RNA sequence: ACUGCAGAAAAGGCCUCAGCAGAUGCACUCAUGUUGCAGUCCUGUCAGAUUUUAAUGAAUCUGCGAAUUCUGUU
Numbered sequence: 001a002c003u004g005c006a007g008a009a010a011a012g013g014c015c016u017c018a019g020c021a022g023a024u025g026c027a028c029u030c031a032u033g034u035u036g037c038a039g040u041c042c043u044g045u046c047a048g049a050u051u052u053u054a055a056u057g058a059a060u061c062u063g064c065g066a067a068u069u070c071u072g073u074u
Stems, first nucleotide, its partner, number of pairs: 013040002018074006025037003046063007
Dot-bracket structure: ............[[...((((((.(((.......))).]].....(((((((....))))))).....))))))
This 74-nucleotide RNA from Crocodylus porosus belongs to the Rfam family "Mammalian CPEB3 ribozyme". A search with the family's covariance model found it, with a score of 53 bits.